A member of the RNA family "Ribosomal S15 leader" from Phocoenobacter uteri, 122 nucleotides long.

RNA sequence: UGUCAUAGCUGAAUUAGAGAUCGGCUAUUGAUGAAUAUUAACAUUACUUAUUAGGAGUAAAAAAUAUGUCUCUAAGUGCAGAAGCAAAAGCAAAAAUCGUUGCAGAAUUUGGUCGUGAUGAA
Numbered sequence: 001u002g003u004c005a006u007a008g009c010u011g012a013a014u015u016a017g018a019g020a021u022c023g024g025c026u027a028u029u030g031a032u033g034a035a036u037a038u039u040a041a042c043a044u045u046a047c048u049u050a051u052u053a054g055g056a057g058u059a060a061a062a063a064a065u066a067u068g069u070c071u072c073u074a075a076g077u078g079c080a081g082a083a084g085c086a087a088a089a090g091c092a093a094a095a096a097u098c099g100u101u102g103c104a105g106a107a108u109u110u111g112g113u114c115g116u117g118a119u120g121a122a
Base pairs, nucleotide, nucleotide: 007026008025009024010023011022012021051076052075054073055072056071057070
Dot-bracket structure: ......((((((........))))))........................((.((((............)))).))..............................................
The family's consensus secondary structure is taken from published work.
Lineage of the source: Bacteria > Pseudomonadota > Gammaproteobacteria > Pasteurellales > Phocoenobacter.
A search with the family's covariance model found it, with a score of 112 bits.
The E. coli Ribosomal S15 gene 5' UTR can form two alternative structures. One that is a series of three hairpins, The other includes a pseudoknot. This structure causes translational regulation of the S15 protein. The alignment of this family contains only the final two hairpins which are conserved in other species, and also includes the complete region that forms the alternate structures.